[Rfam]
RNA: Guanidine-II riboswitch aptamer (mini-ykkC)
RNA sequence: GGGCACGGACGACCGUGACCCUCCUUUGUCGCGCGGCGGGGACGACCCCG
Numbered sequence: 001g002g003g004c005a006c007g008g009a010c011g012a013c014c015g016u017g018a019c020c021c022u023c024c025u026u027u028g029u030c031g032c033g034c035g036g037c038g039g040g041g042a043c044g045a046c047c048c049c050g
Base pairs, nucleotide, nucleotide: 001020002019004017005016006015007014008013037050038049039048040047041046